RNA sequence: ACCGCUGAGCUAAAUCCCCAGCCCCAUAUAUUCAUUUUUAUAAAAAUAAUAUGUAGGGCUGGGGAUUUAGCUCAGUGGC
Numbered sequence: 001a002c003c004g005c006u007g008a009g010c011u012a013a014a015u016c017c018c019c020a021g022c023c024c025c026a027u028a029u030a031u032u033c034a035u036u037u038u039u040a041u042a043a044a045a046a047u048a049a050u051a052u053g054u055a056g057g058g059c060u061g062g063g064g065a066u067u068u069a070g071c072u073c074a075g076u077g078g079c
Stems, first nucleotide, its partner, number of pairs: 002078023
RNA: mir-3473 microRNA precursor family
Organism: Cavia porcellus